[Rfam]
RNA sequence: UAUUGUAAGCAUAAGUCCUUUAUAGAUUGUUCUAGAUGUUCCCAUCCAUCGGUUGGCUAUAGUCUAGGCACCACAAAUCUGUAGGGCAGCUUCCCCG
Number, nucleotide and partner (000 for none) at each position: 001u097002a000003u000004u000005g093006u000007a000008a000009g090010c089011a000012u000013a000014a000015g000016u000017c000018c000019u000020u000021u000022a000023u081024a080025g079026a078027u077028u076029g000030u075031u068032c067033u066034a065035g064036a063037u062038g000039u000040u000041c000042c056043c055044a054045u000046c052047c051048a000049u000050c000051g047052g046053u000054u044055g043056g042057c000058u000059a000060u000061a000062g037063u036064c035065u034066a033067g032068g031069c000070a000071c000072c000073a000074c000075a030076a028077a027078u026079c025080u024081g023082u000083a000084g000085g000086g000087c000088a000089g010090c009091u000092u000093c005094c000095c000096c000097g001
RNA: DUF3800-V RNA